The record is a 420-nucleotide RNA sequence from Rattus norvegicus, which matches "Vertebrate telomerase RNA" in Rfam. It scores 256 bits against the family's covariance model. The literature on the family includes a 2000 paper in Cell by Chen et al., "Secondary structure of vertebrate telomerase RNA". About the family: Telomerase is a ribonucleoprotein reverse transcriptase that synthesises telomeric DNA. Telomerase RNAs differ greatly in sequence and structure between vertebrates, ciliates and yeasts, but they share a 5' pseudoknot structure close to the template sequence. Vertebrate telomerase RNAs have a 3' H/ACA snoRNA-like domain. Its Rfam clan is "Telomerase clan". Its family is annotated with telomerase activity, telomere maintenance via telomerase and telomerase catalytic core complex in the Gene Ontology. The base pairs follow the family's consensus structure, which is taken from published work. Taxonomically the source falls in Rattus (Eukaryota, Craniata, Amniota, Boreoeutheria).
RNA sequence: GUAUUUAGGGACAAGGGCCGCGCGACUUCUGCGUCUAACCCUAUUGUUAUAGCUGUGGGUUCUGUUCUUUUGUUCUCCGCCCGCUGUUUUUCUCGCUGACUUUCAGCGGGCCUGGAAAGUUCAGACCUGCAGCGGGUCACCGCGCAUUCUGGAACCUCAAAAAAUGUCAGCGUAGGAGCUCUGGUGCCAGAGCUCCGCGGCGCUGGGCCGCCCAGCCCGGUACCCGCCUGGAGGCCGCGGACGGCCUGGGGUCUUAGAACUCCGCUGCCGCCGUGAAGAGCUAGUCUCUGUUAGCUACGGGGCACCGGGCGCUGGGGUCAGGCCGGGAGAGCGCCGCAAGGACAGUAACGGAACUGGUCCCUGAGUUCGGUGGCUUUCCUGAGAUGUGGGAAGUGCACCUGGAACUCAGUUCCUACAACC
Numbered sequence: 001g002u003a004u005u006u007a008g009g010g011a012c013a014a015g016g017g018c019c020g021c022g023c024g025a026c027u028u029c030u031g032c033g034u035c036u037a038a039c040c041c042u043a044u045u046g047u048u049a050u051a052g053c054u055g056u057g058g059g060u061u062c063u064g065u066u067c068u069u070u071u072g073u074u075c076u077c078c079g080c081c082c083g084c085u086g087u088u089u090u091u092c093u094c095g096c097u098g099a100c101u102u103u104c105a106g107c108g109g110g111c112c113u114g115g116a117a118a119g120u121u122c123a124g125a126c127c128u129g130c131a132g133c134g135g136g137u138c139a140c141c142g143c144g145c146a147u148u149c150u151g152g153a154a155c156c157u158c159a160a161a162a163a164a165u166g167u168c169a170g171c172g173u174a175g176g177a178g179c180u181c182u183g184g185u186g187c188c189a190g191a192g193c194u195c196c197g198c199g200g201c202g203c204u205g206g207g208c209c210g211c212c213c214a215g216c217c218c219g220g221u222a223c224c225c226g227c228c229u230g231g232a233g234g235c236c237g238c239g240g241a242c243g244g245c246c247u248g249g250g251g252u253c254u255u256a257g258a259a260c261u262c263c264g265c266u267g268c269c270g271c272c273g274u275g276a277a278g279a280g281c282u283a284g285u286c287u288c289u290g291u292u293a294g295c296u297a298c299g300g301g302g303c304a305c306c307g308g309g310c311g312c313u314g315g316g317g318u319c320a321g322g323c324c325g326g327g328a329g330a331g332c333g334c335c336g337c338a339a340g341g342a343c344a345g346u347a348a349c350g351g352a353a354c355u356g357g358u359c360c361c362u363g364a365g366u367u368c369g370g371u372g373g374c375u376u377u378c379c380u381g382a383g384a385u386g387u388g389g390g391a392a393g394u395g396c397a398c399c400u401g402g403a404a405c406u407c408a409g410u411u412c413c414u415a416c417a418a419c420c
Stems, first nucleotide, its partner, number of pairs: 005191002008188002011185002014182005023176001067119004079111008095171006101164003194340001197337004207323003210318004215310006223301004236275005242270004248263003277289004351412004356406003360402002370398003373394001376391004
Dot-bracket structure: ....((.((.((.(((((....(...........................................((((........((((((((........[[[[[[[[[))))))))....))))..........................................]]].]]]]]]....).))))).)).)).))..(..((((......(((((((.((((((..((((.........(((((.((((..(((..........)))...))))))))).((((.....))))........))))...))))))....))))..)))..........))))..)..........((((.(((.((........((((..((((........))))..).)))..)).)))..))))........